T-box leader: a 209-nucleotide sequence from Rossellomorea marisflavi. The match comes from Rfam's covariance-model search (134 bits).

RNA sequence: UUUAAAUCGAUGACAGGAGCUAGUAGUAAGGGAAGCUUGAUCAAGAGAGUCGGUGGCUGGUGCGAACCGAUACAAGGCCUUUAUGAAUCCAUCCUCGAGUGAAGUACUGAAUGAAGUAAGUAUUUUCGGUGAUUCCGUUACCAUCUCUAAGAGGAAGGCAGUCAUCUGUCUUCAAUUAGGGUGGCAACGCGGAAACCUCCGUCCCUUUU
Numbered sequence: 001u002u003u004a005a006a007u008c009g010a011u012g013a014c015a016g017g018a019g020c021u022a023g024u025a026g027u028a029a030g031g032g033a034a035g036c037u038u039g040a041u042c043a044a045g046a047g048a049g050u051c052g053g054u055g056g057c058u059g060g061u062g063c064g065a066a067c068c069g070a071u072a073c074a075a076g077g078c079c080u081u082u083a084u085g086a087a088u089c090c091a092u093c094c095u096c097g098a099g100u101g102a103a104g105u106a107c108u109g110a111a112u113g114a115a116g117u118a119a120g121u122a123u124u125u126u127c128g129g130u131g132a133u134u135c136c137g138u139u140a141c142c143a144u145c146u147c148u149a150a151g152a153g154g155a156a157g158g159c160a161g162u163c164a165u166c167u168g169u170c171u172u173c174a175a176u177u178a179g180g181g182u183g184g185c186a187a188c189g190c191g192g193a194a195a196c197c198u199c200c201g202u203c204c205c206u207u208u209u
Stems, first nucleotide, its partner, number of pairs: 008099001015095004026084006038074002049071006102125007127137003154173007178206004189202005
Rfam 15.1 lists 19,395 matches to the family in 1,923 species. For this family Rfam cites "tRNA determinants for transcription antitermination of the Bacillus subtilis tyrS gene" (Grundy et al., RNA, 2000). Rfam describes the family as follows. Uncharged tRNA acts as the effector for transcription antitermination of genes in the T-box leader family. Rfam classes the family as a cis-regulatory leader.